[Rfam]
RNA sequence: CAAAAUUAAAUUUUAACACACACACAUAUCGACACAUACACUUGGGUGCAUGUUUGUAUCGGUCAAAGAUACGUAAUUAGCAUGUUGGUGAUAUGGGAUAUGUGGAGGCCUAAC
Numbered sequence: 001c002a003a004a005a006u007u008a009a010a011u012u013u014u015a016a017c018a019c020a021c022a023c024a025c026a027u028a029u030c031g032a033c034a035c036a037u038a039c040a041c042u043u044g045g046g047u048g049c050a051u052g053u054u055u056g057u058a059u060c061g062g063u064c065a066a067a068g069a070u071a072c073g074u075a076a077u078u079a080g081c082a083u084g085u086u087g088g089u090g091a092u093a094u095g096g097g098a099u100a101u102g103u104g105g106a107g108g109c110c111u112a113a114c
Base pairs, nucleotide, nucleotide: 023104024103025102026101027100028099029098030097035095036094037093038092040089041088042087048085049084050083051082052081053080054079